[Rfam]
Nucleotides: 107
Stems, first nucleotide, its partner, number of pairs: 021106004026101004031096002034093002037090003044084001045082006055067003
Number, partner (000 for none) and nucleotide at each position: 001000a002000c003000u004000u005000g006000g007000g008000a009000a010000g011000a012000g013000a014000c015000c016000a017000g018000a019000g020000a021106u022105a023104u024103g025000a026101u027100g028099u029098u030000g031096u032095u033000u034093g035092u036000c037090a038089a039088u040000g041000c042000u043000g044084a045082c046081a047080a048079c049078a050077g051000c052000c053000a054000u055067g056066g057065c058000a059000c060000a061000g062000a063000g064000c065057g066056c067055c068000u069000g070000a071000a072000g073000a074000g075000a076000g077050c078049u079048g080047u081046u082045g083000u084044u085000a086000u087000a088039a089038u090037u091000u092035a093034c094000a095032a096031a097000a098029a099028a100027u101026a102000a103024c104023a105022u106021a107000u